[Rfam]
RNA sequence: GCCUGAAGGGUGAAAAGUUGUACUGCUAAUGGUUUAUUUGUACACAUAAGCGUAUAGCUUUUCCCCUUUAGUU
Numbered sequence: 001g002c003c004u005g006a007a008g009g010g011u012g013a014a015a016a017g018u019u020g021u022a023c024u025g026c027u028a029a030u031g032g033u034u035u036a037u038u039u040g041u042a043c044a045c046a047u048a049a050g051c052g053u054a055u056a057g058c059u060u061u062u063c064c065c066c067u068u069u070a071g072u073u
Stems, first nucleotide, its partner, number of pairs: 003071005010065001012063001014061002018057005026050002029047003
This 73-nucleotide RNA sequence from Acanthoscelides obtectus belongs to the Rfam family "mir-965 microRNA precursor family". Gene Ontology terms of the family: miRNA-mediated post-transcriptional gene silencing and RISC complex. The base pairs follow the family's consensus structure, which was predicted with RNAalifold. The family has 16 seed sequences and 224 matches in Rfam 15.1. The source organism's lineage runs through Eukaryota, Opisthokonta, Metazoa, Bruchinae and Acanthoscelides. For this family Rfam cites "The regulation of silkworm fibroin L chain production by miRNA-965 and miRNA-1926 in insect cells" (Huang et al., Bioorg Khim, 2012).